[Rfam]
RNA: ASpks TB sRNA
Organism: Amycolatopsis sp. SID8362
RNA sequence: CUUCAGCGAACCCAGCCACAGCGGCCGCUCCCGGUCCUGCCCGUACGUCGCCAGCAGCGCCUCGGCCUC
Numbered sequence: 001c002u003u004c005a006g007c008g009a010a011c012c013c014a015g016c017c018a019c020a021g022c023g024g025c026c027g028c029u030c031c032c033g034g035u036c037c038u039g040c041c042c043g044u045a046c047g048u049c050g051c052c053a054g055c056a057g058c059g060c061c062u063c064g065g066c067c068u069c
Base pairs, nucleotide, nucleotide: 015025016024017023031065032059033058037054038053039052041050043048
Dot-bracket structure: ..............(((.....))).....(((...(((.(.(....).).)))...)).....)....